Source information:
Shown here is an 81-nucleotide RNA sequence from Pardalotus punctatus, a member of the family "Small nucleolar RNA SNORD45". The family's RNA type in Rfam is C/D-box small nucleolar RNA.
RNA sequence: GGUCUGUGAUGAGUUUUGGCAUGUAUUAUCUGAGUAUAAAUUUGAAGAUUACCAUUUUAGCUCAAAGAUCUCUGAGACCUG
Numbered sequence: 001g002g003u004c005u006g007u008g009a010u011g012a013g014u015u016u017u018g019g020c021a022u023g024u025a026u027u028a029u030c031u032g033a034g035u036a037u038a039a040a041u042u043u044g045a046a047g048a049u050u051a052c053c054a055u056u057u058u059a060g061c062u063c064a065a066a067g068a069u070c071u072c073u074g075a076g077a078c079c080u081g
Stems, first nucleotide, its partner, number of pairs: 001079004
The organism belongs to Pardalotus, within Eukaryota.